Ribosomal protein L10 leader: a 146-nucleotide RNA sequence from Pullulanibacillus camelliae.
A reference for the family is Zengel and Lindahl (1994), "Diverse mechanisms for regulating ribosomal protein synthesis in Escherichia coli", Prog Nucleic Acid Res Mol Biol.
The family's consensus secondary structure was predicted with CMfinder.
The source organism's lineage runs through Bacteria, Bacillati, Bacilli, Sporolactobacillaceae and Pullulanibacillus.
It is annotated as a cis-regulatory leader.

RNA sequence: AAACAAUAUAUGGAACAGCCAUAGACAGCAGGUGCGAGGAUUCGCUUAAUUUCCUGCCGAGGUGAAGAAUUGAUCGUUCGGUAUUUUUGAUGUCCGGAUUAAUACGCCUUCGUGUCUAUGACAUGAGGGCGUUUUUUGAUAAUGCC
Dot-bracket structure: ...........................(((((.(((......))).......)))))...............................................((((((((((.......))))))))))...............
Numbered sequence: 001a002a003a004c005a006a007u008a009u010a011u012g013g014a015a016c017a018g019c020c021a022u023a024g025a026c027a028g029c030a031g032g033u034g035c036g037a038g039g040a041u042u043c044g045c046u047u048a049a050u051u052u053c054c055u056g057c058c059g060a061g062g063u064g065a066a067g068a069a070u071u072g073a074u075c076g077u078u079c080g081g082u083a084u085u086u087u088u089g090a091u092g093u094c095c096g097g098a099u100u101a102a103u104a105c106g107c108c109u110u111c112g113u114g115u116c117u118a119u120g121a122c123a124u125g126a127g128g129g130c131g132u133u134u135u136u137u138g139a140u141a142a143u144g145c146c
Stems, first nucleotide, its partner, number of pairs: 028057005034045003105131010